[Rfam]
Shown here is a 93-nucleotide RNA sequence from Cyprinus carpio, a member of the family "mir-217 microRNA precursor family".
RNA sequence: AUCUUGCUGAUGUUGGUGAUACUGCAUCAGGAACUGAUUGGAUGAUAUCUAGGAGCCAUCAGUUCUUGAUGCACUCCCUUCAGCAUCGAAAGA
Numbered sequence: 001a002u003c004u005u006g007c008u009g010a011u012g013u014u015g016g017u018g019a020u021a022c023u024g025c026a027u028c029a030g031g032a033a034c035u036g037a038u039u040g041g042a043u044g045a046u047a048u049c050u051a052g053g054a055g056c057c058a059u060c061a062g063u064u065c066u067u068g069a070u071g072c073a074c075u076c077c078c079u080u081c082a083g084c085a086u087c088g089a090a091a092g093a
Stems, first nucleotide, its partner, number of pairs: 023073005029067009039058003
The family's consensus secondary structure was predicted with RNAalifold. Rfam's curators put it in the seed alignment. NCBI's taxonomy places the organism under Eukaryota, Chordata, Actinopteri, Otomorpha, Cyprinus. The family has 28 seed sequences and 698 matches in Rfam 15.1.